[Rfam]
RNA: Lysine riboswitch aptamer
RNA sequence: CACUACGAUAGAGGCGCGGUUUUCAUCAGUAUCGUCUGGAAGGGGCCGUAACCCCGUUUGAUCAGGCGAGAAAGGGUCUGCCGCCGAAGCCUUCUCCUUGUUACGGCAGGGCGGGCUGGACGUCGAGGAAAACAUCCCUGCGUCUGUCAUCAGCAGCAAUGCCGGUGGAGAGCUAUCCUUUUU
Numbered sequence: 001c002a003c004u005a006c007g008a009u010a011g012a013g014g015c016g017c018g019g020u021u022u023u024c025a026u027c028a029g030u031a032u033c034g035u036c037u038g039g040a041a042g043g044g045g046c047c048g049u050a051a052c053c054c055c056g057u058u059u060g061a062u063c064a065g066g067c068g069a070g071a072a073a074g075g076g077u078c079u080g081c082c083g084c085c086g087a088a089g090c091c092u093u094c095u096c097c098u099u100g101u102u103a104c105g106g107c108a109g110g111g112c113g114g115g116c117u118g119g120a121c122g123u124c125g126a127g128g129a130a131a132a133c134a135u136c137c138c139u140g141c142g143u144c145u146g147u148c149a150u151c152a153g154c155a156g157c158a159a160u161g162c163c164g165g166u167g168g169a170g171a172g173c174u175a176u177c178c179u180u181u182u183u
Base pairs, nucleotide, nucleotide: 007177008176009175010174011173016084017083018082019081020080024076032069033068034067035066036065037064038063039062088117089116090115091114092113094111095110097109098108118145119144120143121142122141123140125138127136128135147168148167149166150165151164153162